[Rfam]
RNA sequence: GGUCUCCAACGAGCUGUGCUGAGAGGCCACGCGGGAUUGGGAGAGGCUUCACCUUGUGUGUUGCCAUUCCAUCCACUUCUGGUACCGGGCAUCGGUCUGCCAGGGUUGUGCGCAUUGCGGCGCCGCCCGGGACCGAAGGCACGGGGACGA
Number, nucleotide and partner (000 for none) at each position: 001g000002g148003u147004c146005u145006c144007c143008a000009a000010c000011g000012a000013g032014c031015u000016g030017u029018g027019c026020u025021g000022a000023g000024a000025g020026g019027c018028c000029a017030c016031g014032c013033g000034g000035g000036a000037u000038u000039g000040g000041g000042a000043g000044a000045g065046g064047c063048u000049u000050c060051a059052c058053c000054u000055u000056g000057u000058g052059u051060g050061u000062u000063g047064c046065c045066a000067u000068u000069c000070c000071a000072u000073c000074c000075a000076c000077u000078u000079c000080u000081g000082g000083u000084a000085c000086c000087g000088g000089g000090c000091a000092u136093c135094g134095g133096u132097c131098u130099g000100c000101c000102a000103g128104g127105g126106u125107u000108g000109u000110g123111c122112g121113c120114a000115u000116u000117g000118c000119g000120g113121c112122g111123c110124c000125g106126c105127c104128c103129g000130g098131g097132a096133c095134c094135g093136a092137a000138g000139g000140c000141a000142c000143g007144g006145g005146g004147a003148c002149g000150a000
Background: The record is a 150-nucleotide RNA sequence, which matches "cold-seep-1 RNA" in Rfam. The family's consensus secondary structure is taken from published work. The sequence is in the family's curated seed alignment.